[Rfam]
RNA: Small nucleolar RNA snoR53Y
Organism: Apostasia shenzhenica
RNA sequence: GUUCCCAGUGAUGCUCAUUCAUGCCAUGCUAAUUCUGAUAUCCUUUGAAGACCCACUCAUAUACUUCUCUGAGGGAACC
Numbered sequence: 001g002u003u004c005c006c007a008g009u010g011a012u013g014c015u016c017a018u019u020c021a022u023g024c025c026a027u028g029c030u031a032a033u034u035c036u037g038a039u040a041u042c043c044u045u046u047g048a049a050g051a052c053c054c055a056c057u058c059a060u061a062u063a064c065u066u067c068u069c070u071g072a073g074g075g076a077a078c079c
Base pairs, nucleotide, nucleotide: 001078002077003076004075005074